[Rfam]
Nucleotides: 166
Base pairs, nucleotide, nucleotide: 020046021045022044023043024042025041026040029037056086057085058084059083060082064075065074066073067072087106088105089104090103091102092101110156111155112154113153114152115151116150124141125140126139127138128137129136130135
Number, partner (000 for none) and nucleotide at each position: 001000u002000g003000a004000c005000a006000a007000u008000u009000u010000a011000a012000a013000g014000c015000g016000c017000c018000u019000g020046a021045a022044c023043u024042a025041a026040g027000g028000g029037a030000u031000c032000g033000a034000a035000a036000a037029u038000a039000a040026c041025u042024u043023a044022g045021u046020u047000g048000a049000c050000g051000a052000g053000g054000a055000u056086g057085g058084a059083g060082g061000u062000u063000a064075u065074c066073g067072a068000a069000a070000u071000u072067u073066c074065g075064g076000c077000g078000g079000a080000u081000g082060c083059c084058u085057c086056c087106c088105g089104g090103u091102u092101g093000a094000u095000u096000g097000g098000u099000u100000a101092c102091a103090a104089c105088c106087g107000u108000a109000a110156g111155u112154u113153u114152u115151u116150c117000c118000u119000u120000a121000a122000a123000c124141c125140a126139a127138a128137g129136a130135g131000g132000u133000a134000a135130c136129u137128u138127u139126u140125u141124g142000u143000a144000c145000a146000a147000a148000g149000g150116g151115a152114g153113a154112a155111g156110c157000g158000u159000a160000g161000c162000c163000u164000u165000c166000c

Background:
A member of the RNA family "glmS glucosamine-6-phosphate activated ribozyme aptamer" from Metabacillus litoralis, 166 nucleotides long. NCBI's taxonomy places the organism under Bacteria, Bacillati, Bacillota, Bacillaceae, Metabacillus. A search with the family's covariance model found it, with a score of 131 bits. For this family Rfam cites "Control of gene expression by a natural metabolite-responsive ribozyme" (Winkler et al., Nature, 2004). This entry contains a glucosamine-6-phosphate activated ribozyme that is found in the mRNA for GlmS. GlmS is an enzyme that uses fructose-6-phosphate and glutamine to generate glucosamine-6-phosphate. The ribozyme catalyses self cleavage of the glmS mRNA that is thought to regulate GlmS activity. It is annotated as a riboswitch. Pairs were carried over by alignment from the consensus structure, which is taken from published work.